[Rfam]
RNA: tRNA
RNA sequence: GCGGAAUUAGCUCAGUUGGGAGAGCGUUAGACUGAAGAUCUAAAGGUCGCUAGUUCGAUCCUGGCAUUUCGCA
Numbered sequence: 001g002c003g004g005a006a007u008u009a010g011c012u013c014a015g016u017u018g019g020g021a022g023a024g025c026g027u028u029a030g031a032c033u034g035a036a037g038a039u040c041u042a043a044a045g046g047u048c049g050c051u052a053g054u055u056c057g058a059u060c061c062u063g064g065c066a067u068u069u070c071g072c073a
Stems, first nucleotide, its partner, number of pairs: 001072007010025004027043005049065005